Shown here is an 82-nucleotide RNA from Bacillus subtilis, a member of the family "tRNA". Rfam classes the family as a transfer RNA.
[Rfam]
RNA sequence: GGAGGGGUAGCGAAGUGGCUAAACGCGGCGGACUGUAAAUCCGCUCCCUCAGGGUUCGGCAGUUCGAAUCUGCCCCCCUCCA
Numbered sequence: 001g002g003a004g005g006g007g008u009a010g011c012g013a014a015g016u017g018g019c020u021a022a023a024c025g026c027g028g029c030g031g032a033c034u035g036u037a038a039a040u041c042c043g044c045u046c047c048c049u050c051a052g053g054g055u056u057c058g059g060c061a062g063u064u065c066g067a068a069u070c071u072g073c074c075c076c077c078c079u080c081c082a
Base pairs, nucleotide, nucleotide: 001081002080003079004078005077006076007075010026011025012024028044029043030042031041032040058074059073060072061071062070

Its family is annotated with triplet codon-amino acid adaptor activity in the Gene Ontology. The sequence is in the family's curated seed alignment.